[Rfam]
RNA: S. aureus tsr25 small RNA
Organism: Staphylococcus saprophyticus
RNA sequence: UAAUGUAAUUGAAAAUGAUUAUCAAUACCAAAAUAAGACAUUCCCCCCACACAUAUUUCGUUCUUAUUUGGAUUGAUCAUUUUCAAAAAUAUCCCCUUUUAUAUGCCCGUAAAAGACUAACGUUGCGAGACAACGUGAAUAUAAAAACCGGUUUUACAUUGUAAAAUCGGUUUUUAU
Numbered sequence: 001u002a003a004u005g006u007a008a009u010u011g012a013a014a015a016u017g018a019u020u021a022u023c024a025a026u027a028c029c030a031a032a033a034u035a036a037g038a039c040a041u042u043c044c045c046c047c048c049a050c051a052c053a054u055a056u057u058u059c060g061u062u063c064u065u066a067u068u069u070g071g072a073u074u075g076a077u078c079a080u081u082u083u084c085a086a087a088a089a090u091a092u093c094c095c096c097u098u099u100u101a102u103a104u105g106c107c108c109g110u111a112a113a114a115g116a117c118u119a120a121c122g123u124u125g126c127g128a129g130a131c132a133a134c135g136u137g138a139a140u141a142u143a144a145a146a147a148c149c150g151g152u153u154u155u156a157c158a159u160u161g162u163a164a165a166a167u168c169g170g171u172u173u174u175u176a177u
Stems, first nucleotide, its partner, number of pairs: 005090002009086011023075004028071003035064001037062003096115007121135005141177014